[Rfam]
RNA sequence: UACCGCUGCCCUCCUUGGGCGUUUCCUCCCUAGACUUGGGCCGCUCCGUUUACGGGGCGGCCUCUUUCUUUUUGGCG
Numbered sequence: 001u002a003c004c005g006c007u008g009c010c011c012u013c014c015u016u017g018g019g020c021g022u023u024u025c026c027u028c029c030c031u032a033g034a035c036u037u038g039g040g041c042c043g044c045u046c047c048g049u050u051u052a053c054g055g056g057g058c059g060g061c062c063u064c065u066u067u068c069u070u071u072u073u074g075g076c077g
Stems, first nucleotide, its partner, number of pairs: 008020004039062009
RNA: Makes More Granules Regulator RNA (mmgR)